[Rfam]
RNA sequence: AAAUAUUAAAUAGACUAGAGUAGUAAAAGAUUGAGUUUUACCAGAGAGCUAGUGGGUGGUGAGAACUAGCAAAAUUUAACUUUGAACUUGCUAGAUUUAAAUCUAUUUAGCCGUAGUUGGCAUAAAAACUAUCUAAGAGAGCCUAUUUUAGGCUAAUUAGGGUGGUACCGCGAAGAUUAUCCUCGUCCCUAAA
Number, nucleotide and partner (000 for none) at each position: 001a000002a000003a000004u000005a000006u000007u099008a098009a000010a000011u000012a000013g000014a000015c094016u093017a092018g091019a000020g000021u000022a000023g000024u000025a000026a083027a082028a081029g080030a000031u078032u000033g000034a000035g000036u000037u073038u072039u071040a000041c000042c000043a000044g000045a000046g000047a000048g070049c069050u068051a067052g066053u065054g000055g000056g000057u000058g000059g000060u000061g000062a000063g000064a000065a053066c052067u051068a050069g049070c048071a039072a038073a037074a000075u000076u000077u000078a031079a000080c029081u028082u027083u026084g000085a000086a000087c000088u000089u000090g000091c018092u017093a016094g015095a000096u000097u000098u008099a007100a000101a000102u000103c000104u000105a000106u000107u000108u000109a000110g121111c120112c119113g000114u000115a000116g000117u000118u000119g112120g111121c110122a000123u000124a000125a000126a000127a000128a000129c000130u000131a000132u000133c000134u000135a000136a000137g000138a000139g000140a154141g153142c152143c151144u150145a149146u000147u000148u000149u145150a144151g143152g142153c141154u140155a000156a000157u000158u000159a190160g189161g188162g187163u000164g000165g000166u000167a000168c000169c000170g186171c185172g184173a183174a000175g000176a000177u000178u000179a000180u000181c000182c000183u173184c172185g171186u170187c162188c161189c160190u159191a000192a000193a000
The family of this 193-nucleotide RNA from Asaccharospora irregularis is "T-box leader". About the family: Uncharged tRNA acts as the effector for transcription antitermination of genes in the T-box leader family. T-boxes are found upstream of many aminoacyl-tRNA synthetase genes and some amino acid biosynthetic genes usually in Gram-positive bacteria. The anticodon of a specific tRNA base pairs to a specifier sequence within the T-box motif, and the NCCA acceptor tail of the tRNA base pairs to a conserved bulge in the T-box antiterminator hairpin. Lineage of the source: Bacteria > Bacillota > Peptostreptococcales > Peptostreptococcaceae > Asaccharospora irregularis. By type it is a cis-regulatory leader.